[Rfam]
The record is a 94-nucleotide sequence from Paenibacillus sp. Root444D2, which matches "c-di-GMP-I riboswitch aptamer" in Rfam. Clan: c-di-GMP_I riboswitch clan. It scores 62 bits against the family's covariance model. The base pairs follow the family's consensus structure, which is taken from published work. From the family's description: GEMM was predicted in a large-scale screen for bacterial structured RNA regulatory elements. On this family, see Weinberg et al., Nucleic Acids Res 2007: "Identification of 22 candidate structured RNAs in bacteria using the CMfinder comparative genomics pipeline".
RNA sequence: AAUCGUAAAAAGCAAACCAUUGGAAACAAUGCGACGCAAAGCCAUGACCUAAGGCAUCCCUAAUUGGGAUUGCUAUGGACGACAGGUUACCGAG
Number, nucleotide and partner (000 for none) at each position: 001a000002a000003u000004c000005g000006u000007a000008a000009a000010a000011a000012g037013c036014a000015a000016a000017c000018c031019a030020u029021u028022g027023g000024a000025a000026a000027c022028a021029a020030u019031g018032c000033g000034a000035c000036g013037c012038a000039a000040a088041g087042c086043c085044a000045u084046g083047a000048c078049c077050u000051a000052a000053g000054g073055c072056a071057u000058c000059c000060c000061u000062a000063a000064u000065u000066g000067g000068g000069a000070u000071u056072g055073c054074u000075a000076u000077g049078g048079a000080c000081g000082a000083c046084a045085g043086g042087u041088u040089a000090c000091c000092g000093a000094g000